FMN riboswitch aptamer (RFN element): a 177-nucleotide RNA sequence from Comamonas sp. BIGb0124. Taxonomically the source falls in Comamonas (Bacteria, Betaproteobacteria, Burkholderiales, Comamonadaceae).
[Rfam]
RNA sequence: CAGCGUUUUCAGGGCAGGGUGCAAUUCCCUACCGGCGGUGUUUGUGCCUGGUGCACAUCAGCCCGCGAGCGCUUGCGUCGGCCCCAUUGCCCUUGCGGCGUGGCUUGCUGCGCAAGGUCAGCAGAUUCGGUUCGAUUCCGAAGCCGACGGUCACAGUCCGGAUGAAAGAAAACGCGA
Numbered sequence: 001c002a003g004c005g006u007u008u009u010c011a012g013g014g015c016a017g018g019g020u021g022c023a024a025u026u027c028c029c030u031a032c033c034g035g036c037g038g039u040g041u042u043u044g045u046g047c048c049u050g051g052u053g054c055a056c057a058u059c060a061g062c063c064c065g066c067g068a069g070c071g072c073u074u075g076c077g078u079c080g081g082c083c084c085c086a087u088u089g090c091c092c093u094u095g096c097g098g099c100g101u102g103g104c105u106u107g108c109u110g111c112g113c114a115a116g117g118u119c120a121g122c123a124g125a126u127u128c129g130g131u132u133c134g135a136u137u138c139c140g141a142a143g144c145c146g147a148c149g150g151u152c153a154c155a156g157u158c159c160g161g162a163u164g165a166a167a168g169a170a171a172a173c174g175c176g177a
Stems, first nucleotide, its partner, number of pairs: 003175008017029003031157002033146002035066004061144002069122002126142005148160003